[Rfam]
RNA sequence: AUGAGAGAGGUUCAGUAAGACCAUCCCUCUAUAAAAAACUAGGCAAUU
Numbered sequence: 001a002u003g004a005g006a007g008a009g010g011u012u013c014a015g016u017a018a019g020a021c022c023a024u025c026c027c028u029c030u031a032u033a034a035a036a037a038a039c040u041a042g043g044c045a046a047u048u
Base pairs, nucleotide, nucleotide: 006030007029008028009027010026
A member of the RNA family "PreQ1 (pre queuosine) riboswitch aptamer" from Clostridiaceae bacterium 14S0207, 48 nucleotides long. The pairing is the family consensus, mapped onto this sequence. This family is a bacterial riboswitch that binds to the metabolite preQ1, an intermediate in the biosynthesis of the modified nucleoside queuosine from GTP. One example of this riboswitch is located in the leader of the Bacillus subtilis ykvJKLM (queCDEF) operon which encodes four genes necessary for queuosine production. PreQ1 binding to the riboswitch aptamer is thought to induce premature transcription termination within the leader to down-regulate expression of these genes. Taxonomically the source falls in Clostridiaceae (Bacteria, Bacillati, Clostridia, Eubacteriales). The match comes from Rfam's covariance-model search (41 bits).